Shown here is a 136-nucleotide RNA from Kryptolebias marmoratus, a member of the family "Small nucleolar RNA SNORA31". Gene Ontology terms of the family: nucleolus and RNA processing. NCBI's taxonomy places the organism under Eukaryota, Craniata, Neoteleostei, Ovalentaria, Kryptolebias.

RNA sequence: CUGCAUCUUUGACAGCCCGGGCUCUCUGUGGUGAGAUACCCUGGGUUUUAUUUCUGCAGAUGCAACAUUAAACGUCCCCGCGCUUUCUGCUCGCCUCUGUUUCGUGGCGUCUCGGAUUGAAGAGGGGAGAACAAAC
Numbered sequence: 001c002u003g004c005a006u007c008u009u010u011g012a013c014a015g016c017c018c019g020g021g022c023u024c025u026c027u028g029u030g031g032u033g034a035g036a037u038a039c040c041c042u043g044g045g046u047u048u049u050a051u052u053u054c055u056g057c058a059g060a061u062g063c064a065a066c067a068u069u070a071a072a073c074g075u076c077c078c079c080g081c082g083c084u085u086u087c088u089g090c091u092c093g094c095c096u097c098u099g100u101u102u103c104g105u106g107g108c109g110u111c112u113c114g115g116a117u118u119g120a121a122g123a124g125g126g127g128a129g130a131a132c133a134a135a136c
Base pairs, nucleotide, nucleotide: 002064003063004062005061006060007059008058010050011049014047015046016045017044018043019042020041021040075128076127077126078125079124083119086116087115088114089113092109093108094107095106